[Rfam]
RNA sequence: GUGAGCUAGGAAGAGGAAGAAAUAUUCUAAGAGCGAUGAGAAUGGGAACACGGAGGAAACCCCGUGCUAUCCAUCCGCGCCUCUGUAACAAGUGGUGGAUAUUUGUCUCAAUGUUUCCCCAUGCCUCCCAUUGCUAUUGCUCUUAGGUUCUCCUUCCCCUUUCUUUUACCU
Numbered sequence: 001g002u003g004a005g006c007u008a009g010g011a012a013g014a015g016g017a018a019g020a021a022a023u024a025u026u027c028u029a030a031g032a033g034c035g036a037u038g039a040g041a042a043u044g045g046g047a048a049c050a051c052g053g054a055g056g057a058a059a060c061c062c063c064g065u066g067c068u069a070u071c072c073a074u075c076c077g078c079g080c081c082u083c084u085g086u087a088a089c090a091a092g093u094g095g096u097g098g099a100u101a102u103u104u105g106u107c108u109c110a111a112u113g114u115u116u117c118c119c120c121a122u123g124c125c126u127c128c129c130a131u132u133g134c135u136a137u138u139g140c141u142c143u144u145a146g147g148u149u150c151u152c153c154u155u156c157c158c159c160u161u162u163c164u165u166u167u168a169c170c171u
Stems, first nucleotide, its partner, number of pairs: 009162003013158001015156003022151001026147010037136002041132007049123002053119001055118006
This 171-nucleotide RNA sequence from Triticum turgidum belongs to the Rfam family "MIR2118 microRNA precursor family".
The organism belongs to Triticum turgidum, within Eukaryota.
The family has 7 seed sequences and 2,377 matches in Rfam 15.1.
For this family Rfam cites "Characterization and expression profiles of miRNAs in rice seeds" (Xue et al., Nucleic Acids Res, 2009).